This 159-nucleotide sequence from Desulfonema ishimotonii belongs to the Rfam family "Group II catalytic intron D1-D4-7". The source organism's lineage runs through Bacteria, Pseudomonadati, Thermodesulfobacteriota, Desulfobacteria and Desulfonema.
[Rfam]
RNA sequence: CCUGUCGUAUUGCCGAUAGUUUUCUACUCCGACAUGCAUAUUCACCGCCGGUGUCUGUUGUAUGAAGCUCGGAGGACAACGAAGCCCGUGGAGGAAUUUCUCCGGGAGAGAGACCCGUGAGGCGGUCUCAAAUCUGGCAGCGUCAGGCCGGAGCGGGAA
Numbered sequence: 001c002c003u004g005u006c007g008u009a010u011u012g013c014c015g016a017u018a019g020u021u022u023u024c025u026a027c028u029c030c031g032a033c034a035u036g037c038a039u040a041u042u043c044a045c046c047g048c049c050g051g052u053g054u055c056u057g058u059u060g061u062a063u064g065a066a067g068c069u070c071g072g073a074g075g076a077c078a079a080c081g082a083a084g085c086c087c088g089u090g091g092a093g094g095a096a097u098u099u100c101u102c103c104g105g106g107a108g109a110g111a112g113a114c115c116c117g118u119g120a121g122g123c124g125g126u127c128u129c130a131a132a133u134c135u136g137g138c139a140g141c142g143u144c145a146g147g148c149c150g151g152a153g154c155g156g157g158a159a
Stems, first nucleotide, its partner, number of pairs: 002019006028073005033064006086105003090101004106129004115122002133152006
Rfam's curators write: Group II introns are found in rRNA, tRNA and mRNA of organelles in fungi, plants and protists, and also in mRNA in bacteria. For this family Rfam cites "The ins and outs of group II introns" (Bonen and Vogel, Trends Genet, 2001).